[Rfam]
RNA sequence: GCAUAACGCCUCUAGGGUUCCGGCUUAUCAGCGUCAGGUCCGAGAGAGGCUCUCCCGUCUCAUGUGAGAGGCGGAGCCACGGCGGGAUAAAAGCCCGGGAGAC
Numbered sequence: 001g002c003a004u005a006a007c008g009c010c011u012c013u014a015g016g017g018u019u020c021c022g023g024c025u026u027a028u029c030a031g032c033g034u035c036a037g038g039u040c041c042g043a044g045a046g047a048g049g050c051u052c053u054c055c056c057g058u059c060u061c062a063u064g065u066g067a068g069a070g071g072c073g074g075a076g077c078c079a080c081g082g083c084g085g086g087a088u089a090a091a092a093g094c095c096c097g098g099g100a101g102a103c
Stems, first nucleotide, its partner, number of pairs: 008050005015041002020038002022035001023032003052076003056073005078098001080101001084096003
A member of the RNA family "Guanidine-I riboswitch aptamer" from Methyloceanibacter marginalis, 103 nucleotides long. From the family's description: This family represents a conserved RNA structure found upstream of the ykkC and yxkD genes in Bacillus subtilis and related genes in other bacteria. The function of this family is unclear although it has been suggested that it may function to switch on efflux pumps and detoxification systems in response to harmful environmental molecules. A search with the family's covariance model found it, with a score of 78 bits.